[Rfam]
RNA: Glycine riboswitch aptamer
Organism: Moraxella bovoculi
RNA sequence: GCUAACCGCUCUGGAGAGCUUGCCAUUUUUUUUAAGUGGCAACACCGAAGGGAAGAAGUAAUUUUUGAAUUACGAAAAUCUCAGGUAUCAGGACAGAUGGGGUGUG
Numbered sequence: 001g002c003u004a005a006c007c008g009c010u011c012u013g014g015a016g017a018g019c020u021u022g023c024c025a026u027u028u029u030u031u032u033u034a035a036g037u038g039g040c041a042a043c044a045c046c047g048a049a050g051g052g053a054a055g056a057a058g059u060a061a062u063u064u065u066u067g068a069a070u071u072a073c074g075a076a077a078a079u080c081u082c083a084g085g086u087a088u089c090a091g092g093a094c095a096g097a098u099g100g101g102g103u104g105u106g
Stems, first nucleotide, its partner, number of pairs: 006101002010097004020042009044086003047082002051080002058073006